The record is an 87-nucleotide RNA from Coptis chinensis, which matches "Small nucleolar RNA U54" in Rfam. Clan: U54 clan. From the family's description: U54 is a C/D box small nucleolar RNA, which acts as a methylation guide for 18S ribosomal RNA in plants. The source organism's lineage runs through Eukaryota, Streptophyta, Embryophyta, Coptidoideae and Coptis. Pairs were carried over by alignment from the consensus structure, which was predicted with PFOLD. The family has 21 seed sequences and 614 matches in Rfam 15.1.
RNA sequence: GGCUCAAUGAUUACAUGCCUAAUUGGCUAUAUACGCUAUUCUGAGUGAGAUAUAAUCACUGGGCUGAAAAAUAAUAUUAUGAGAGCU
Number, nucleotide and partner (000 for none) at each position: 001g087002g086003c085004u084005c083006a000007a000008u000009g000010a000011u000012u000013a000014c000015a000016u000017g000018c000019c000020u000021a000022a000023u000024u000025g000026g000027c000028u000029a000030u000031a000032u000033a000034c000035g000036c000037u000038a000039u000040u000041c000042u000043g000044a000045g000046u000047g000048a000049g000050a000051u000052a000053u000054a000055a000056u000057c000058a000059c000060u000061g000062g000063g000064c000065u000066g000067a000068a000069a000070a000071a000072u000073a000074a000075u000076a000077u000078u000079a000080u000081g000082a000083g005084a004085g003086c002087u001